[Rfam]
RNA sequence: UCGAUUGAUCGAUUGAUCGAUCGAUCGAUCGAUUAGAUCGAUCGAAUCGAUCGAUCAAUUAGAUCGAUCGAUUCGAUCGAUCAAUUAGAUUGAUCGAUUCGAUUGAUCGAUUAGAU
Numbered sequence: 001u002c003g004a005u006u007g008a009u010c011g012a013u014u015g016a017u018c019g020a021u022c023g024a025u026c027g028a029u030c031g032a033u034u035a036g037a038u039c040g041a042u043c044g045a046a047u048c049g050a051u052c053g054a055u056c057a058a059u060u061a062g063a064u065c066g067a068u069c070g071a072u073u074c075g076a077u078c079g080a081u082c083a084a085u086u087a088g089a090u091u092g093a094u095c096g097a098u099u100c101g102a103u104u105g106a107u108c109g110a111u112u113a114g115a116u
Base pairs, nucleotide, nucleotide: 006040007039008038009037010036013032014031015030016029017028018027062112063111065109066108067103068102069101070100076098077097078096079095080094081093082092084090085089
RNA: Small nucleolar RNA snoR111
Organism: Candidula unifasciata